[Rfam]
RNA sequence: CAUCUCUUUAAGGGGUGCCUUACUCUUUCAGGCUGAGAUCAUACCCUAUGAACUGAUCCGGAUAAUGCCGGCGUAGUAAUUAAAAGUAAUUUUAUGA
Dot-bracket structure: ......((((((((.(((((.........)))).......)..))))....((((..((((......))))..))))...)))).............
RNA: TPP riboswitch aptamer (THI element)
Organism: Alloprevotella sp. OH1205_COT-284